Y RNA: a 99-nucleotide sequence from Urocitellus parryii.
It scores 53 bits against the family's covariance model.
Y RNAs are components of the Ro ribonucleoprotein particle (Ro RNP), in association with Ro60 and La proteins.
Taxonomically the source falls in Urocitellus (Eukaryota, Chordata, Euteleostomi, Tetrapoda).
Rfam classes the family as a non-coding RNA gene.
[Rfam]
RNA sequence: GGCUGGUCCAAGUGCAGUAGUGUUUAUAAGGACUUGAUCACAACCCGGUGAAAGAUUUCUUCUUUUUCUGCUCACACUGCUUCACUUGACUAGCCUUGA
Numbered sequence: 001g002g003c004u005g006g007u008c009c010a011a012g013u014g015c016a017g018u019a020g021u022g023u024u025u026a027u028a029a030g031g032a033c034u035u036g037a038u039c040a041c042a043a044c045c046c047g048g049u050g051a052a053a054g055a056u057u058u059c060u061u062c063u064u065u066u067u068c069u070g071c072u073c074a075c076a077c078u079g080c081u082u083c084a085c086u087u088g089a090c091u092a093g094c095c096u097u098g099a
Stems, first nucleotide, its partner, number of pairs: 001095008010087002014083001016078003020075003028061003032057001